[Rfam]
RNA sequence: CCGUGCUAGAUGGGGAGGUAGCGGUGCCCUGUAACUCGCAAUCCGCUAUAGCGAGGUUGAAUUCCUACUCGAGGUCUUGCCCUGUAAGGUUUGGUCUUUACACAUAAUGUUGACGGUUGGGUCCUCCGCAAUGAGCACCUGUGAACCUGGUCAGGUCCGGAAGGAAGCAGCCAUAAGCAGACAAGCUUUUGUGCCGGAGGGUGGCCUAGCCCGAGUUGUUGUGUAGAGGUGCCGCUUGGAUGGCAUCGUAUCGAAGGUAGGUGCACGG
Numbered sequence: 001c002c003g004u005g006c007u008a009g010a011u012g013g014g015g016a017g018g019u020a021g022c023g024g025u026g027c028c029c030u031g032u033a034a035c036u037c038g039c040a041a042u043c044c045g046c047u048a049u050a051g052c053g054a055g056g057u058u059g060a061a062u063u064c065c066u067a068c069u070c071g072a073g074g075u076c077u078u079g080c081c082c083u084g085u086a087a088g089g090u091u092u093g094g095u096c097u098u099u100a101c102a103c104a105u106a107a108u109g110u111u112g113a114c115g116g117u118u119g120g121g122u123c124c125u126c127c128g129c130a131a132u133g134a135g136c137a138c139c140u141g142u143g144a145a146c147c148u149g150g151u152c153a154g155g156u157c158c159g160g161a162a163g164g165a166a167g168c169a170g171c172c173a174u175a176a177g178c179a180g181a182c183a184a185g186c187u188u189u190u191g192u193g194c195c196g197g198a199g200g201g202u203g204g205c206c207u208a209g210c211c212c213g214a215g216u217u218g219u220u221g222u223g224u225a226g227a228g229g230u231g232c233c234g235c236u237u238g239g240a241u242g243g244c245a246u247c248g249u250a251u252c253g254a255a256g257g258u259a260g261g262u263g264c265a266c267g268g
Base pairs, nucleotide, nucleotide: 001268002267003266004265005264006263009058010057011056012030013029014028015027017025019023035055036054037053038052039051064261065260066259067258068257069256073252074251075250077248079244080243081242083240085238086237087236088235092231093230096228097227098226099225100224101223104220106217107216108215115211116210117209118208119207120206121205122204123200124199125198126197127196128195129191130190133188134187135186136185139180140179141178142177148173149172150171151170156165157164158163

Background: A member of the RNA family "Bacterial large signal recognition particle RNA" from Saccharibacillus sacchari, 268 nucleotides long. Rfam classes the family as a non-coding RNA gene. The organism belongs to Saccharibacillus sacchari, within Bacteria. About the family: The signal recognition particle (SRP) is a universally conserved ribonucleoprotein involved in the co-translational targeting of proteins to membranes.